[Rfam]
RNA sequence: UGAGAGAAGUGUCCUGAAGGAACUCGGCAAAUUGCCUCCGUACCUUCGGAAGAAGGAGGCCCGAUGUAAGCGCAAGCUCUCAUCGGGGGCACAGGCCAGGGGGUAGCGACUGUUUAGCAAAAACACAGGGCUCUGCUAAGUCGGCUUCAAGACGACGUAUAGGGUCUGACGCCUGCCCGGUGCCGGAAGGUUAAGAGGAGGAGUGCAAGCUCUGAAUUGAAGCCCCGGUAAACGGCGGCCGUAACUAUAACGGUCCUAAGGUAGCGAAAUUCCUUGUCGGGUAAGUUCCGACCUGCACGAAUGGCGUAACGACUUCCCCACUGUCUCCAGGACAUGCUCA
Numbered sequence: 001u002g003a004g005a006g007a008a009g010u011g012u013c014c015u016g017a018a019g020g021a022a023c024u025c026g027g028c029a030a031a032u033u034g035c036c037u038c039c040g041u042a043c044c045u046u047c048g049g050a051a052g053a054a055g056g057a058g059g060c061c062c063g064a065u066g067u068a069a070g071c072g073c074a075a076g077c078u079c080u081c082a083u084c085g086g087g088g089g090c091a092c093a094g095g096c097c098a099g100g101g102g103g104u105a106g107c108g109a110c111u112g113u114u115u116a117g118c119a120a121a122a123a124c125a126c127a128g129g130g131c132u133c134u135g136c137u138a139a140g141u142c143g144g145c146u147u148c149a150a151g152a153c154g155a156c157g158u159a160u161a162g163g164g165u166c167u168g169a170c171g172c173c174u175g176c177c178c179g180g181u182g183c184c185g186g187a188a189g190g191u192u193a194a195g196a197g198g199a200g201g202a203g204u205g206c207a208a209g210c211u212c213u214g215a216a217u218u219g220a221a222g223c224c225c226c227g228g229u230a231a232a233c234g235g236c237g238g239c240c241g242u243a244a245c246u247a248u249a250a251c252g253g254u255c256c257u258a259a260g261g262u263a264g265c266g267a268a269a270u271u272c273c274u275u276g277u278c279g280g281g282u283a284a285g286u287u288c289c290g291a292c293c294u295g296c297a298c299g300a301a302u303g304g305c306g307u308a309a310c311g312a313c314u315u316c317c318c319c320a321c322u323g324u325c326u327c328c329a330g331g332a333c334a335u336g337c338u339c340a
Base pairs, nucleotide, nucleotide: 001340002339003338004337009335010334011333012332013331014330015329016328018326019325020324035059036058037057038056039055044049060087061086062085063084064083065082066081069078070077071076088092100319101318102317103316105314106313107311108310111125112124113123128167129166130165131164132163133162134161135160136157140153141152142151170306171305172304173303175236176235177234180233181232182229183228184227185226186225189224190223191222195218196217200213201212202211203210204209237255238254239253240252241251242250256260266293276292277291278290279289280288281287

Notes:
Rfam assigns this 340-nucleotide part of an RNA from Sphingomonas sp. OV641 to the family "Bacterial large subunit ribosomal RNA". NCBI's taxonomy places the organism under Bacteria, Pseudomonadati, Alphaproteobacteria, Sphingomonadales, Sphingomonas. Clan: LSU clan.